[Rfam]
A member of the RNA family "SAM riboswitch aptamer (S box leader)" from Sediminibacillus albus, 107 nucleotides long. The match comes from Rfam's covariance-model search (68 bits). The family's consensus secondary structure is taken from published work. The source organism's lineage runs through Bacteria, Bacillati, Caryophanales, Bacillaceae and Sediminibacillus.
RNA sequence: CUCUUAUCCAGAGUCGGCGGAGGGACAGGCCCGAAGAAACCCGGCAACCAUCAUUUAGAUGAAAAGGUGCUAACCUGAUGCAAGGUUUUUUCCUUGGACGAUAAGAC
Numbered sequence: 001c002u003c004u005u006a007u008c009c010a011g012a013g014u015c016g017g018c019g020g021a022g023g024g025a026c027a028g029g030c031c032c033g034a035a036g037a038a039a040c041c042c043g044g045c046a047a048c049c050a051u052c053a054u055u056u057a058g059a060u061g062a063a064a065a066g067g068u069g070c071u072a073a074c075c076u077g078a079u080g081c082a083a084g085g086u087u088u089u090u091u092c093c094u095u096g097g098a099c100g101a102u103a104a105g106a107c
Base pairs, nucleotide, nucleotide: 002106003105004104005103006102007101008100013042016041017040022032023031024030026080027079029076043071044070045069046068048067049066051062052061053060081096082095083094084093085092